[Rfam]
SAH (S-adenosyl-L-homocysteine) riboswitch aptamer: a 108-nucleotide RNA sequence from Polynucleobacter paneuropaeus. Rfam 15.1 lists 1,354 matches to the family in 1,132 species.

RNA sequence: ACCUUCAAGGAGCGUUGCAAGGAUUGCUGUGAACCAGUCAAUCCCCAGGCUUGGAGGGUGUAAAUUUUGCUAUCCCGAAUUUACUAAUUGCAACCGCGCUCGCUAACC
Numbered sequence: 001a002c003c004u005u006c007a008a009g010g011a012g013c014g015u016u017g018c019a020a021g022g023a024u025u026g027c028u029g030u031g032a033a034c035c036a037g038u039c040a041a042u043c044c045c046c047a048g049g050c051u052u053g054g055a056g057g058g059u060g061u062a063a064a065u066u067u068u069g070c071u072a073u074c075c076c077g078a079a080u081u082u083a084c085u086a087a088u089u090g091c092a093a094c095c096g097c098g099c100u101c102g103c104u105a106a107c108c
Stems, first nucleotide, its partner, number of pairs: 002057007021044006